This 396-nucleotide part of an RNA from Fusarium austroafricanum belongs to the Rfam family "Ascomycota telomerase RNA". The pairing is the family consensus, mapped onto this sequence. Rfam links the family to the GO terms telomerase catalytic core complex, telomerase activity and telomere maintenance via telomerase. The match comes from Rfam's covariance-model search (390 bits).
[Rfam]
RNA sequence: AAUCACACAGAAGGAGUCGUCUCGUCAGCGUCCGUGGGUUUCCGAAUUGCGUUCUGUCAUGAUCGCUUCCGGUGGAGUCGUGUUUGCGAAGGUAUUGGGUAAUUAUGGAAUUGUCAGCUCACGGAACAGUUUUCACCUUUGCAAUGACUAUUGCUGCGGACGAUACUCGUGGUUGACGUUGGAAGCAUCGCCGGGACCCAUCUAGAGUUGGAGUCAAAGUUUCGUGCUUGUCUGGUGCUGUGAAAGACUCUUCCAUCGGGUUGAAUCUCACGGCUCUAUGUCGCUUUGUUGAGAUUGGGUUGUAUGUUGGAUCUAGGACAGGCCUUGUCGGUGAGGUAGUCCUGGCUGUCCUCUCGCCUGGAAAUGGUGUGGAGGACAGCCCCCCGCAGUUAGGGG
Numbered sequence: 001a002a003u004c005a006c007a008c009a010g011a012a013g014g015a016g017u018c019g020u021c022u023c024g025u026c027a028g029c030g031u032c033c034g035u036g037g038g039u040u041u042c043c044g045a046a047u048u049g050c051g052u053u054c055u056g057u058c059a060u061g062a063u064c065g066c067u068u069c070c071g072g073u074g075g076a077g078u079c080g081u082g083u084u085u086g087c088g089a090a091g092g093u094a095u096u097g098g099g100u101a102a103u104u105a106u107g108g109a110a111u112u113g114u115c116a117g118c119u120c121a122c123g124g125a126a127c128a129g130u131u132u133u134c135a136c137c138u139u140u141g142c143a144a145u146g147a148c149u150a151u152u153g154c155u156g157c158g159g160a161c162g163a164u165a166c167u168c169g170u171g172g173u174u175g176a177c178g179u180u181g182g183a184a185g186c187a188u189c190g191c192c193g194g195g196a197c198c199c200a201u202c203u204a205g206a207g208u209u210g211g212a213g214u215c216a217a218a219g220u221u222u223c224g225u226g227c228u229u230g231u232c233u234g235g236u237g238c239u240g241u242g243a244a245a246g247a248c249u250c251u252u253c254c255a256u257c258g259g260g261u262u263g264a265a266u267c268u269c270a271c272g273g274c275u276c277u278a279u280g281u282c283g284c285u286u287u288g289u290u291g292a293g294a295u296u297g298g299g300u301u302g303u304a305u306g307u308u309g310g311a312u313c314u315a316g317g318a319c320a321g322g323c324c325u326u327g328u329c330g331g332u333g334a335g336g337u338a339g340u341c342c343u344g345g346c347u348g349u350c351c352u353c354u355c356g357c358c359u360g361g362a363a364a365u366g367g368u369g370u371g372g373a374g375g376a377c378a379g380c381c382c383c384c385c386g387c388a389g390u391u392a393g394g395g396g
Stems, first nucleotide, its partner, number of pairs: 195215003198211003217229004